The record is a 90-nucleotide sequence from Streptomyces sp. SID8111, which matches "sodF sRNA" in Rfam.
The family's RNA type in Rfam is small RNA.
RNA sequence: GCGUCCUGCCUCGUGAUCGUCUUCUCACCGUUCACCCGGCAGGCGGAAAGAGGGAAGCCCCCGCGACGACCUGAGUCGCGGGGGCUUCCG
Numbered sequence: 001g002c003g004u005c006c007u008g009c010c011u012c013g014u015g016a017u018c019g020u021c022u023u024c025u026c027a028c029c030g031u032u033c034a035c036c037c038g039g040c041a042g043g044c045g046g047a048a049a050g051a052g053g054g055a056a057g058c059c060c061c062c063g064c065g066a067c068g069a070c071c072u073g074a075g076u077c078g079c080g081g082g083g084g085c086u087u088c089c090g
Base pairs, nucleotide, nucleotide: 002045003044005043006042007041008040009039010038013035014034015033016032019029053089054088055087056086057085058084059083060082061081062080063079064078065077066076067075